The family of this 91-nucleotide RNA sequence from Medicago truncatula is "MIR5298 microRNA precursor family".
The family's consensus secondary structure was predicted with RNAalifold.
RNA sequence: UUUGGUUUUUUUCGUUUUCUUCUGGAAUUUUCCUGGGAUUCUUGUUGUUAAAGGUUGGUAGAGAUGAUAUGAAGAUGAAAAAGAGGAAAAG
Dot-bracket structure: .....((((((((((((((.................((((.((......)).))))..............)))))))))))))).......